[Rfam]
RNA sequence: CCACGGCUAUGAAGCGAGAGGUUGCGACACGCCCGGACGCAUUGCCAUGGGCGAGCGUGUUGGUGUUUUCGUGGAGCUAUGUCUACUUUUAAAAUAGGCGAAGGAGGGAAAAAAAUGGCAA
Numbered sequence: 001c002c003a004c005g006g007c008u009a010u011g012a013a014g015c016g017a018g019a020g021g022u023u024g025c026g027a028c029a030c031g032c033c034c035g036g037a038c039g040c041a042u043u044g045c046c047a048u049g050g051g052c053g054a055g056c057g058u059g060u061u062g063g064u065g066u067u068u069u070c071g072u073g074g075a076g077c078u079a080u081g082u083c084u085a086c087u088u089u090u091a092a093a094a095u096a097g098g099c100g101a102a103g104g105a106g107g108g109a110a111a112a113a114a115a116u117g118g119c120a121a
Stems, first nucleotide, its partner, number of pairs: 014072003018069004025062008080120004